[Rfam]
RNA sequence: AAUGCCCCUUCCGGCCGGGCCUUAAAUGCCGGAACGCUCCAGCGCAGAGCAGCUGCGAAUUUACAAAUAAAAGCGAUUUGCCAGAGCGUGAAAGGAUC
Numbered sequence: 001a002a003u004g005c006c007c008c009u010u011c012c013g014g015c016c017g018g019g020c021c022u023u024a025a026a027u028g029c030c031g032g033a034a035c036g037c038u039c040c041a042g043c044g045c046a047g048a049g050c051a052g053c054u055g056c057g058a059a060u061u062u063a064c065a066a067a068u069a070a071a072a073g074c075g076a077u078u079u080g081c082c083a084g085a086g087c088g089u090g091a092a093a094g095g096a097u098c
Stems, first nucleotide, its partner, number of pairs: 005019003010033005035088005043057004

The family of this 98-nucleotide RNA sequence is "GP20-a RNA". It is annotated as a cis-regulatory element.